[Rfam]
RNA: U2 spliceosomal RNA
RNA sequence: AUCGCUUCUCAGCCUUUUGGCUAAGAUCAAGUAUAGUAUCCGUUCUUAUCAGUUUAAUAUCUAAUACGUCCUCUAACCCAGGACAAUAUGUUAAAUGGAUAUUUGGGAGCAGGGAGAUGGAAUAGGAACCUGCUCCGUCCACUCCACGCACUAACCUGGCAUUGCAGGAAAUGUUAAAGUGCAACAAAU
Numbered sequence: 001a002u003c004g005c006u007u008c009u010c011a012g013c014c015u016u017u018u019g020g021c022u023a024a025g026a027u028c029a030a031g032u033a034u035a036g037u038a039u040c041c042g043u044u045c046u047u048a049u050c051a052g053u054u055u056a057a058u059a060u061c062u063a064a065u066a067c068g069u070c071c072u073c074u075a076a077c078c079c080a081g082g083a084c085a086a087u088a089u090g091u092u093a094a095a096u097g098g099a100u101a102u103u104u105g106g107g108a109g110c111a112g113g114g115a116g117a118u119g120g121a122a123u124a125g126g127a128a129c130c131u132g133c134u135c136c137g138u139c140c141a142c143u144c145c146a147c148g149c150a151c152u153a154a155c156c157u158g159g160c161a162u163u164g165c166a167g168g169a170a171a172u173g174u175u176a177a178a179g180u181g182c183a184a185c186a187a188a189u
Base pairs, nucleotide, nucleotide: 007026008025009024011022012021013020014019047066048065049064051062052061068084069083070082071081072080113145114144115143116142119139120138125136126135127134148182149181150180151179152178155173